[Rfam]
Shown here is a 199-nucleotide RNA from Coxiella burnetii, a member of the family "Coxiella burnetii sRNA 3". The match comes from Rfam's covariance-model search (105 bits).

RNA sequence: GCCGUGAAAGCCCUCUAUUCUUUGUCUAUCAGUAGACGGCCUGCGCACGGGAACGACGGACAUUUUUUUCACCUACUUGAUAUUCCCUCUUUACCGCUCCCUUAAGUUGACGCCUAUGCGCGCAGGUGGGAAUCCAGCGCGCCUUUGGCGCGCAGCGCACAUAGUGCGCUGUGUCCCCGCCUGCGCGGGGAUGACGAAA
Dot-bracket structure: .........(....(.((....((((((....))))))..........(((...(..((..................................)).)..)))...)).).((.(..((((..((((.(((.((..((((.((.....................)).))))..)).))).))))))))..).)).)....
Numbered sequence: 001g002c003c004g005u006g007a008a009a010g011c012c013c014u015c016u017a018u019u020c021u022u023u024g025u026c027u028a029u030c031a032g033u034a035g036a037c038g039g040c041c042u043g044c045g046c047a048c049g050g051g052a053a054c055g056a057c058g059g060a061c062a063u064u065u066u067u068u069u070c071a072c073c074u075a076c077u078u079g080a081u082a083u084u085c086c087c088u089c090u091u092u093a094c095c096g097c098u099c100c101c102u103u104a105a106g107u108u109g110a111c112g113c114c115u116a117u118g119c120g121c122g123c124a125g126g127u128g129g130g131a132a133u134c135c136a137g138c139g140c141g142c143c144u145u146u147g148g149c150g151c152g153c154a155g156c157g158c159a160c161a162u163a164g165u166g167c168g169c170u171g172u173g174u175c176c177c178c179g180c181c182u183g184c185g186c187g188g189g190g191a192u193g194a195c196g197a198a199a
Stems, first nucleotide, its partner, number of pairs: 010195001015109001017107002023038006049102003055097001058095002111193002114190001117187004123183004128178003132174002136170004141165002
Source information: From the family's description: In bacteria small regulatory RNAs are activated during stress and virulence conditions. Coxiella burnetii small RNAs (CbSRs 1, 11, 12, and 14) are encoded within intergenic region IGR. CbSRs 2, 3, 4 and 9 are located antisense to identified ORFs. CbSRs are up-regulated during intracellular growth in host cells. On this family, see Warrier et al., PLoS One 2014: "Identification of novel small RNAs and characterization of the 6S RNA of Coxiella burnetii". The family's RNA type in Rfam is antisense RNA. Lineage of the source: Bacteria > Pseudomonadota > Gammaproteobacteria > Coxiella > Coxiella burnetii. The family's consensus secondary structure was predicted with CMfinder.